Small nucleolar RNA SNORA70: a 121-nucleotide RNA from Tursiops truncatus. Rfam links the family to the GO terms nucleolus and RNA processing. snoRNA U70 seems to be exclusive to mammals and is a member of the H/ACA class of snoRNA which contain H (ANANNA) and ACA box motifs. H/ACA box snoRNAs are involved in the conversion of uridines to pseudouridines (5-ribosyluracil) a constituent of structural RNAs (transfer, ribosomal, small nuclear, and small nucleolar).
RNA sequence: UUGCAGCCAAGUAAGCCAACCGUGCUCUUUUCUACAUGGGGGUCUGGCAUGUAAUGGCUGCAAAGAACAGUCUCCUCAGUAGUGCCUGUAAGGGUUGCUCUAAUGGACCUUGGAAACAGCC
Numbered sequence: 001u002u003g004c005a006g007c008c009a010a011g012u013a014a015g016c017c018a019a020c021c022g023u024g025c026u027c028u029u030u031u032c033u034a035c036a037u038g039g040g041g042g043u044c045u046g047g048c049a050u051g052u053a054a055u056g057g058c059u060g061c062a063a064a065g066a067a068c069a070g071u072c073u074c075c076u077c078a079g080u081a082g083u084g085c086c087u088g089u090a091a092g093g094g095u096u097g098c099u100c101u102a103a104u105g106g107a108c109c110u111u112g113g114a115a116a117c118a119g120c121c
Base pairs, nucleotide, nucleotide: 002053003052004051005050020047021046022045025042026041027040028039079108080107089097090096091095